[Rfam]
RNA sequence: GCCCCCGGCCUCCUCAUUGUGCAUGCUGUGUGUCUGCUGUCGUUUCCCGCACAGCGCCUGCAAUGUGGAGGCUGAGGGG
Numbered sequence: 001g002c003c004c005c006c007g008g009c010c011u012c013c014u015c016a017u018u019g020u021g022c023a024u025g026c027u028g029u030g031u032g033u034c035u036g037c038u039g040u041c042g043u044u045u046c047c048c049g050c051a052c053a054g055c056g057c058c059u060g061c062a063a064u065g066u067g068g069a070g071g072c073u074g075a076g077g078g079g
Base pairs, nucleotide, nucleotide: 012068013067015065016064017063018062019061020060021059024056026054027053028052029051030050031049
RNA: mir-460 microRNA precursor family